[Rfam]
Nucleotides: 036
Stems, first nucleotide, its partner, number of pairs: 001036008010028001012027005017021001
Number, partner (000 for none) and nucleotide at each position: 001036u002035u003034g004033g005032u006031u007030c008029u009000u010028g011000c012027u013026u014025c015024a016023a017021c018000a019000g020000u021017g022000a023016u024015u025014g026013a027012a028010c029008g030007g031006a032005a033004c034003u035002a036001g
The record is a 36-nucleotide sequence from Hymenochirus boettgeri, which matches "Iron response element I" in Rfam. For this family Rfam cites "Identification of the iron-responsive element for the translational regulation of human ferritin mRNA" (Hentze et al., Science, 1987). Rfam 15.1 lists 6,829 matches to the family in 599 species.